[Rfam]
RNA sequence: UAAAAUCACUAGGGGAGCCUUUGAUAAGGGCUGAGAGCAAAGUAGGUACUUUGAAACUCUUAUCACCUGAACAGGUUAGAACCUGCGUAGGGAAGUGGAGCGGUAUUUUC
Numbered sequence: 001u002a003a004a005a006u007c008a009c010u011a012g013g014g015g016a017g018c019c020u021u022u023g024a025u026a027a028g029g030g031c032u033g034a035g036a037g038c039a040a041a042g043u044a045g046g047u048a049c050u051u052u053g054a055a056a057c058u059c060u061u062a063u064c065a066c067c068u069g070a071a072c073a074g075g076u077u078a079g080a081a082c083c084u085g086c087g088u089a090g091g092g093a094a095g096u097g098g099a100g101c102g103g104u105a106u107u108u109u110c
Stems, first nucleotide, its partner, number of pairs: 006098005011060004017031005038053005066091004072085004

A member of the RNA family "TPP riboswitch aptamer (THI element)" from Mesobacillus foraminis, 110 nucleotides long. It scores 77 bits against the family's covariance model. NCBI's taxonomy places the organism under Bacteria, Bacillati, Caryophanales, Bacillaceae, Mesobacillus.